[Rfam]
RNA: SAM-I/IV (S-adenosyl methionine) riboswitch aptamer
RNA sequence: AACGUACAUCAAGAGAGGGCUGACGCGCCCCGCCAACCUGCAGCUCGUGCAAGGUGGCAUCCCGUAAGGGAGAUGUGGCCAUAGUGGCAAUAUCGAGCGUC
Numbered sequence: 001a002a003c004g005u006a007c008a009u010c011a012a013g014a015g016a017g018g019g020c021u022g023a024c025g026c027g028c029c030c031c032g033c034c035a036a037c038c039u040g041c042a043g044c045u046c047g048u049g050c051a052a053g054g055u056g057g058c059a060u061c062c063c064g065u066a067a068g069g070g071a072g073a074u075g076u077g078g079c080c081a082u083a084g085u086g087g088c089a090a091u092a093u094c095g096a097g098c099g100u101c
Stems, first nucleotide, its partner, number of pairs: 006076005015031001017030004032058003037054003040050003045099001078088004